[Rfam]
RNA: mir-3389 microRNA precursor family
RNA sequence: CCAGUCGUAGCCGAUGUUCCACAGGAGGGGUCCCAAGACCGAUCCCUGCGGAACACCGCACGACAUA
Numbered sequence: 001c002c003a004g005u006c007g008u009a010g011c012c013g014a015u016g017u018u019c020c021a022c023a024g025g026a027g028g029g030g031u032c033c034c035a036a037g038a039c040c041g042a043u044c045c046c047u048g049c050g051g052a053a054c055a056c057c058g059c060a061c062g063a064c065a066u067a
Base pairs, nucleotide, nucleotide: 004064005063006062007061008060010059011058013056015055016054017053018052019051020050024049026047027046029045030044033041